The family of this 69-nucleotide RNA sequence from Actinosynnema mirum is "ASpks TB sRNA". The family's RNA type in Rfam is antisense RNA. The family has 77 seed sequences and 9,052 matches in Rfam 15.1. It is one of the family's seed sequences.
RNA sequence: CUUGAUCGAGCCCAGCCACAGCGGCUCGGUGCGGUCCUGACCGUAGGUGGCCAGCAGCGCCUGCGCCUC
Numbered sequence: 001c002u003u004g005a006u007c008g009a010g011c012c013c014a015g016c017c018a019c020a021g022c023g024g025c026u027c028g029g030u031g032c033g034g035u036c037c038u039g040a041c042c043g044u045a046g047g048u049g050g051c052c053a054g055c056a057g058c059g060c061c062u063g064c065g066c067c068u069c
Stems, first nucleotide, its partner, number of pairs: 014026004027063001032059002037054003041050003